A member of the RNA family "SAM (S-adenosyl methionine) riboswitch aptamer" from Intrasporangium calvum, 127 nucleotides long.
RNA sequence: GGUCAUGAGCGCCAGCGUCAAGCCCCGGCUCGCUGGCCAGCAACCCUCCUCCGCGGUGGGGUGCUCCGGGUGACGACCAGGCCGCCCUCGCCACGUUCGUGGUGACGAGGUGCGGCAAGCGCGGACC
Numbered sequence: 001g002g003u004c005a006u007g008a009g010c011g012c013c014a015g016c017g018u019c020a021a022g023c024c025c026c027g028g029c030u031c032g033c034u035g036g037c038c039a040g041c042a043a044c045c046c047u048c049c050u051c052c053g054c055g056g057u058g059g060g061g062u063g064c065u066c067c068g069g070g071u072g073a074c075g076a077c078c079a080g081g082c083c084g085c086c087c088u089c090g091c092c093a094c095g096u097u098c099g100u101g102g103u104g105a106c107g108a109g110g111u112g113c114g115g116c117a118a119g120c121g122c123g124g125a126c127c
Stems, first nucleotide, its partner, number of pairs: 001078004009038001011037006021030002039065003044061003048056002081116005086110005

Background
Rfam links the family to the GO terms regulation of gene expression and S-adenosylmethionine metabolic process. The source organism's lineage runs through Bacteria, Actinomycetota, Actinomycetes, Micrococcales and Intrasporangium calvum.